Small nucleolar RNA SNORA38: a 131-nucleotide RNA from Oryctolagus cuniculus. About the family: ACA38 is a member of the H/ACA class of snoRNA that guide the sites of modification of uridines to pseudouridines.

[Rfam]
RNA sequence: CUGUUCUACAGAGUCAUAUCUGUGGCUUCCUGUCUUUUAACACAUGAAGAAUUGGAGGCAAAGAAAUGAGUACUUAGAGAAGUCUGGGACCAGCAUGUUCCCUGUAGGCUCAAGGUCAACCGUCCUUGUAG
Numbered sequence: 001c002u003g004u005u006c007u008a009c010a011g012a013g014u015c016a017u018a019u020c021u022g023u024g025g026c027u028u029c030c031u032g033u034c035u036u037u038u039a040a041c042a043c044a045u046g047a048a049g050a051a052u053u054g055g056a057g058g059c060a061a062a063g064a065a066a067u068g069a070g071u072a073c074u075u076a077g078a079g080a081a082g083u084c085u086g087g088g089a090c091c092a093g094c095a096u097g098u099u100c101c102c103u104g105u106a107g108g109c110u111c112a113a114g115g116u117c118a119a120c121c122g123u124c125c126u127u128g129u130a131g
Base pairs, nucleotide, nucleotide: 002058004056005055006054015046016045017044019042021040024030025029070124072123074122092110093109094108096106097105098104

It is annotated as an H/ACA-box small nucleolar RNA. A search with the family's covariance model found it, with a score of 72 bits. The family's consensus secondary structure was predicted with RNAfold.